[Rfam]
RNA sequence: AUUCUUUGUGGUUUUGAUUGUUGCUCAGAAAGCCUUGUAUUUGAAACGGCUUUCGAGUAAUAAUCAAUACCAGAAUGAAA
Dot-bracket structure: .(((.((....(.(((((.(((((((.(((((((.............)))))))))))))).))))).)....)).))).
This 80-nucleotide sequence from Oryctes borbonicus belongs to the Rfam family "mir-315 microRNA precursor family". Gene Ontology terms of the family: RISC complex and miRNA-mediated post-transcriptional gene silencing. It scores 70 bits against the family's covariance model. The source organism's lineage runs through Eukaryota, Panarthropoda, Hexapoda, Pterygota and Oryctes.